The record is a 225-nucleotide sequence from Brunnivagina elsteri, which matches "HNH endonuclease-associated RNA and ORF (HEARO) RNA" in Rfam.
RNA sequence: GUCAACGACCCAGGUCUAAAGACACUGGGCUUCCAGCCUAAGACUUAGAUUACAGUUGACCAGAUUAAGUCUUAACUGACUACGUUUAAGGUAAGAGUUAAAGACCUACAAAGGGAUGCGAAGCUAGUUCCUUGCUCUAGAAAUUGAGGGUUAAACAGAUUUAUUGGGUUAAGUCAGUGCCUUCAAUAUAGUACCGACCUUAAACAUUAUCGAAGCUAACAUUAC
Dot-bracket structure: ((((((...((((.((....))..)).))(((.......)))............))))))..(((.(((((......))))..(((((((((.............((...(((((((....[[[[.))))))).....))..(((((((((...((.((((((......)))))).))))))))))).........))))))))).).)))..]]]]........
NCBI's taxonomy places the organism under Bacteria, Cyanobacteriota, Nostocales, Brunnivagina, Brunnivagina elsteri. The base pairs follow the family's consensus structure, which is taken from published work.